[Rfam]
RNA sequence: UCACAUUCGUGCUAUAUGGCACACAGUUGAUUUAUAUUAUUUUCUAGUUCAUAAGUCUGUUGAGUGCCAUAGAGCAAGAAGUGUG
Numbered sequence: 001u002c003a004c005a006u007u008c009g010u011g012c013u014a015u016a017u018g019g020c021a022c023a024c025a026g027u028u029g030a031u032u033u034a035u036a037u038u039a040u041u042u043u044c045u046a047g048u049u050c051a052u053a054a055g056u057c058u059g060u061u062g063a064g065u066g067c068c069a070u071a072g073a074g075c076a077a078g079a080a081g082u083g084u085g
Stems, first nucleotide, its partner, number of pairs: 002085006008078001010076004015071008024062003029057007036048004
Overview: The family of this 85-nucleotide sequence from Drosophila pseudoobscura is "mir-2511 microRNA precursor family". The base pairs follow the family's consensus structure, which was predicted with RNAalifold.